Rfam assigns this 54-nucleotide sequence from Oncorhynchus mykiss to the family "UnaL2 LINE 3' element".
Taxonomically the source falls in Oncorhynchus (Eukaryota, Actinopteri, Clupeocephala, Protacanthopterygii).
The family has 30 seed sequences and 493,311 matches in Rfam 15.1.
Rfam describes the family as follows. The eel long interspersed element (LINE) UnaL2 and its partner short interspersed element (SINE) share a conserved 3' tail containing a stem-loop that is critical for their retrotransposition. Presumably, the first step of retrotransposition is the recognition of their 3' tails by UnaL2-encoded reverse transcriptase. The solution structure of a 17-nucleotide RNA derived from the 3' tail of UnaL2 was determined by NMR.
The family's RNA type in Rfam is cis-regulatory element.
The match comes from Rfam's covariance-model search (56 bits).
RNA sequence: UGCAUGCAUGAUUGUAAGUUGCUAUGGAAAAAAGUGUCUGCUAAAUGGCAUUUA
Numbered sequence: 001u002g003c004a005u006g007c008a009u010g011a012u013u014g015u016a017a018g019u020u021g022c023u024a025u026g027g028a029a030a031a032a033a034g035u036g037u038c039u040g041c042u043a044a045a046u047g048g049c050a051u052u053u054a
Stems, first nucleotide, its partner, number of pairs: 013043001014041003020036004025031001